[Rfam]
RNA sequence: GGAUCGGGAGGCUACCUGACGGGGGGUGGCCAGGCAUGGAUCCGAACCCCCUGUUUCGAAAAGGGCACAGUGCCGGGGCCCGACGGCAACUGUU
Numbered sequence: 001g002g003a004u005c006g007g008g009a010g011g012c013u014a015c016c017u018g019a020c021g022g023g024g025g026g027u028g029g030c031c032a033g034g035c036a037u038g039g040a041u042c043c044g045a046a047c048c049c050c051c052u053g054u055u056u057c058g059a060a061a062a063g064g065g066c067a068c069a070g071u072g073c074c075g076g077g078g079c080c081c082g083a084c085g086g087c088a089a090c091u092g093u094u
Stems, first nucleotide, its partner, number of pairs: 001043005010031008067093004071088005
RNA: Rhodo-rpoB RNA